[Rfam]
RNA sequence: CAUAGGGCGCUGCCCCAUGUUAAGAUAUGCCGGCCUUUCAGGCCU
Numbered sequence: 001c002a003u004a005g006g007g008c009g010c011u012g013c014c015c016c017a018u019g020u021u022a023a024g025a026u027a028u029g030c031c032g033g034c035c036u037u038u039c040a041g042g043c044c045u
Stems, first nucleotide, its partner, number of pairs: 001019003005015004032044005

Acido-Lenti-1 RNA: a 45-nucleotide sequence from Dyadobacter koreensis. The source organism's lineage runs through Bacteria, Pseudomonadati, Bacteroidota, Cytophagales and Dyadobacter. Rfam classes the family as a small RNA.